[Rfam]
RNA: c-di-AMP riboswitch aptamer (ydaO/yuaA leader)
RNA sequence: UCCCGACGCCCGUCGAAUCCCGGACACGGCCAGCGGUCGUGCGAGGGAACCGGGGAACCAGUCACGUGGGGUGAAUCGGCGACUCGUUCGGCCUUUGCCGGUACCGAACGAGCGGGGCGCCGUAGGACCACCUUCAGGUCCGAAUCCGUCAGCUCACCUGGUAGACGUCGAAUGAAGGAGUU
Number, nucleotide and partner (000 for none) at each position: 001u000002c000003c000004c000005g000006a000007c000008g000009c000010c000011c167012g166013u165014c164015g000016a000017a000018u048019c047020c046021c000022g000023g000024a000025c000026a000027c000028g000029g000030c000031c000032a000033g000034c000035g000036g000037u000038c000039g000040u000041g000042c000043g000044a000045g000046g020047g019048a018049a162050c161051c160052g159053g158054g157055g000056a000057a000058c000059c068060a067061g000062u000063c000064a000065c000066g000067u060068g059069g147070g146071g145072u000073g000074a000075a000076u000077c122078g121079g120080c119081g000082a000083c000084u000085c000086g000087u000088u000089c000090g000091g000092c000093c000094u000095u000096u000097g000098c000099c000100g000101g000102u000103a000104c000105c000106g000107a000108a000109c000110g000111a000112g000113c000114g000115g000116g000117g000118c000119g080120c079121c078122g077123u000124a000125g141126g140127a139128c138129c000130a000131c000132c000133u000134u000135c000136a000137g000138g128139u127140c126141c125142g000143a000144a000145u071146c070147c069148g000149u000150c000151a000152g000153c000154u000155c000156a000157c054158c053159u052160g051161g050162u049163a000164g014165a013166c012167g011168u000169c000170g000171a000172a000173u000174g000175a000176a000177g000178g000179a000180g000181u000182u000